[Rfam]
RNA sequence: CUAGAGAAGGCAUCCAUAUCCGCCGAUGGCGUUUCCCUGUAUGUUAGCACAGUGCCGAAAGGCCCGCGACGAAGUACUAGGACCGGCAGGCGCUGGGUUCCCUGAUCAGGAAGCGCGGCCGGU
Numbered sequence: 001c002u003a004g005a006g007a008a009g010g011c012a013u014c015c016a017u018a019u020c021c022g023c024c025g026a027u028g029g030c031g032u033u034u035c036c037c038u039g040u041a042u043g044u045u046a047g048c049a050c051a052g053u054g055c056c057g058a059a060a061g062g063c064c065c066g067c068g069a070c071g072a073a074g075u076a077c078u079a080g081g082a083c084c085g086g087c088a089g090g091c092g093c094u095g096g097g098u099u100c101c102c103u104g105a106u107c108a109g110g111a112a113g114c115g116c117g118g119c120c121g122g123u
Stems, first nucleotide, its partner, number of pairs: 001080004006075001009070001010044004015039002021031004047067002055062002083122004090116005101110003
RNA: Flavobacterium-1 RNA